[Rfam]
RNA: mir-306 microRNA precursor family
RNA sequence: CCUUACGCGUUUCAAGCCCUUAACGGCUCUUAAUCUUAAUCUAUGAUUAAGAGCCGUUAAGGGCUUGAAACGCGUAAGG
Numbered sequence: 001c002c003u004u005a006c007g008c009g010u011u012u013c014a015a016g017c018c019c020u021u022a023a024c025g026g027c028u029c030u031u032a033a034u035c036u037u038a039a040u041c042u043a044u045g046a047u048u049a050a051g052a053g054c055c056g057u058u059a060a061g062g063g064c065u066u067g068a069a070a071c072g073c074g075u076a077a078g079g
Stems, first nucleotide, its partner, number of pairs: 001079005007073005013067007022058014